Shown here is a 105-nucleotide RNA sequence from Clostridium chromiireducens, a member of the family "Purine riboswitch aptamer". Rfam describes the family as follows. Riboswitches are metabolite binding domains within certain messenger RNAs that serve as precision sensors for their corresponding targets.
[Rfam]
RNA sequence: AAAAACUAAAUAAUAUUCACUUGUAUAAAUUCAACGAUAUGGGUUGAGUGUUUCUACCAAGCUGCCGUAAAUUGCUAUAGGGCUAUAAGUGUCUGCUAAAGAAUU
Numbered sequence: 001a002a003a004a005a006c007u008a009a010a011u012a013a014u015a016u017u018c019a020c021u022u023g024u025a026u027a028a029a030u031u032c033a034a035c036g037a038u039a040u041g042g043g044u045u046g047a048g049u050g051u052u053u054c055u056a057c058c059a060a061g062c063u064g065c066c067g068u069a070a071a072u073u074g075c076u077a078u079a080g081g082g083c084u085a086u087a088a089g090u091g092u093c094u095g096c097u098a099a100a101g102a103a104u105u
Stems, first nucleotide, its partner, number of pairs: 018091008029049007058081001060076003064072001
Source information: NCBI's taxonomy places the organism under Bacteria, Bacillota, Eubacteriales, Clostridiaceae, Clostridium.